[Rfam]
RNA sequence: CAUAUGGGGAUCCGCGAGCUCCCCACGAGGCGUCAGCUGAAACUCGCGUUCCAAUCCCGUUCCAUUGAACCCAAGGAGGGAACGCACAUG
Number, nucleotide and partner (000 for none) at each position: 001c000002a000003u000004a000005u025006g024007g023008g022009g021010a020011u000012c000013c000014g000015c000016g000017a000018g000019c000020u010021c009022c008023c007024c006025a005026c000027g000028a000029g000030g000031c000032g000033u000034c000035a000036g000037c000038u000039g000040a000041a000042a000043c000044u000045c000046g085047c084048g083049u082050u081051c080052c000053a000054a000055u000056c000057c000058c000059g000060u000061u000062c000063c000064a000065u000066u000067g000068a000069a000070c000071c000072c000073a000074a000075g000076g000077a000078g000079g000080g051081a050082a049083c048084g047085c046086a000087c000088a000089u000090g000